[Rfam]
RNA sequence: UCUAGAACUUGAGAUAUGGGCUGAAUACUGAACAGUGCCUAGGCUGUAAGACAGAUUCGGACUUUUCCGUUGUUGCUAUAAUUUGGACUUGAAAACGGCUUUUUUAAAUCUUGGACUCCAUAUGAAAGUUGUAGGUUUAUGUCUUACCGAAUUUUUCC
Number, nucleotide and partner (000 for none) at each position: 001u000002c000003u000004a000005g157006a156007a155008c000009u151010u000011g145012a144013g143014a142015u141016a140017u139018g138019g137020g136021c134022u133023g132024a000025a130026u000027a129028c128029u127030g000031a000032a000033c000034a000035g123036u122037g121038c000039c000040u000041a000042g118043g117044c000045u115046g000047u000048a112049a111050g110051a109052c000053a000054g105055a104056u000057u000058c000059g100060g099061a000062c098063u097064u000065u000066u000067c000068c000069g000070u000071u000072g088073u087074u086075g000076c000077u000078a000079u000080a000081a000082u000083u000084u000085g000086g074087a073088c072089u000090u000091g000092a000093a000094a000095a000096c000097g063098g062099c060100u059101u000102u000103u000104u055105u054106a000107a000108a000109u051110c050111u049112u048113g000114g000115a045116c000117u043118c042119c000120a000121u037122a036123u035124g000125a000126a000127a029128g028129u027130u025131g000132u023133a022134g021135g000136u020137u019138u018139a017140u016141g015142u014143c013144u012145u011146a000147c000148c000149g000150a000151a009152u000153u000154u000155u007156u006157c005158c000
Rfam assigns this 158-nucleotide sequence from Populus alba to the family "MIR2912 microRNA precursor family".
The base pairs follow the family's consensus structure, which was predicted with RNAalifold.